[Rfam]
Bacterial large subunit ribosomal RNA: a 384-nucleotide part of an RNA from uncultured Fidelibacterota bacterium HF0010_18O13. The base pairs follow the family's consensus structure, which is taken from published work. It is one of the family's seed sequences. The organism belongs to Fidelibacterota, within Bacteria.

RNA sequence: GAUAAACACAGUGAAAUUCUGUGUCACCGAAAACCCAAGGUUUCCUGAGUAAAGCAAAUCUGCUCAGGGUUAGUCGGACCCUAAGUCGAGGCCGAAAGGCGUAGGCGAUGGAAAACGGGCUUAAUAUUCCCGUACCAGUAUAUAUUUGUUUGAACUAUGGGGUAACGGAGAAAUGAAAGAUCAGCCAGGUUUUGAUUGUCCUGGUUUAAGUACGUAGGAAGUUUCAAUUGGUAAAUCCGUUGAAACAAUUCUGAAAUACGAAUAGGAGGGCCUAGCCCACAAACUGAUCCUAAUUAUGCUUCCAAGAAAAACCUCUAUGUAAGAAUAUAAACUGACCGUACUGUAAACGGACACACGUGGGUGAGGAGAGUAUCCUAAGGUGCU
Dot-bracket structure: .....((((((.......))))))((((....((((..((...((((((...((.....)).))))))......(((..((...(((.(.(((....))).).)))...))...(((((.........)))))..((((.((((((.......((...(((((...((((..(.....(((((((((((..........))))))(...(((....(((..(((((((.((.....)))))))))....)))....)))....).(.(((.....))).)....))))).....)...))))........)))))...))...)))))).)))).)))..)).....((......)).)))).((((.....))))..))))..